A member of the RNA family "lysM-TM7 RNA", 145 nucleotides long. Pairs were carried over by alignment from the consensus structure, which is taken from published work. It is one of the family's seed sequences. The family's RNA type in Rfam is cis-regulatory element.

RNA sequence: GCCUGCCAGAAAAGUCGUACGGACACAGCAUUUUGCUCUCGCGUAAUCAAUAAUAUUAAAAUAAACUUUGGUCGACGAGUGUCCUUUUCUAAUAAGAAGUAAGACUGAGUAUGGUAGAUGUGGUGCAGCAAUGUUUCCACGGGAG
Numbered sequence: 001g002c003c004u005g006c007c008a009g010a011a012a013a014g015u016c017g018u019a020c021g022g023a024c025a026c027a028g029c030a031u032u033u034u035g036c037u038c039u040c041g042c043g044u045a046a047u048c049a050a051u052a053a054u055a056u057u058a059a060a061a062u063a064a065a066c067u068u069u070g071g072u073c074g075a076c077g078a079g080u081g082u083c084c085u086u087u088u089c090u091a092a093u094a095a096g097a098a099g100u101a102a103g104a105c106u107g108a109g110u111a112u113g114g115u116a117g118a119u120g121u122g123g124u125g126c127a128g129c130a131a132u133g134u135u136u137c138c139a140c141g142g143g144a145g
Stems, first nucleotide, its partner, number of pairs: 003117006013106004021084006087098004120140004125134003